[Rfam]
RNA sequence: AUUCCUUCUUAUCCUGCACACAGUUUGUUCAUUGGCUGUGGAGCCUGGAAAUGGAGGAGAAAUUAAAAUAAAGAAUAACAAUGUCUUCAUUCCUUAUAGAGCUAUGGAGAGUGUUUGAAUUUGAACAUUU
Numbered sequence: 001a002u003u004c005c006u007u008c009u010u011a012u013c014c015u016g017c018a019c020a021c022a023g024u025u026u027g028u029u030c031a032u033u034g035g036c037u038g039u040g041g042a043g044c045c046u047g048g049a050a051a052u053g054g055a056g057g058a059g060a061a062a063u064u065a066a067a068a069u070a071a072a073g074a075a076u077a078a079c080a081a082u083g084u085c086u087u088c089a090u091u092c093c094u095u096a097u098a099g100a101g102c103u104a105u106g107g108a109g110a111g112u113g114u115u116u117g118a119a120u121u122u123g124a125a126c127a128u129u130u
Stems, first nucleotide, its partner, number of pairs: 003058006012049003016044002019040001021038005069123004077115003085109003090104001093101002
Caenorhabditis snoRNA ceN42: a 130-nucleotide RNA sequence from Caenorhabditis brenneri. The family's consensus secondary structure was predicted with RNAalifold. It scores 107 bits against the family's covariance model.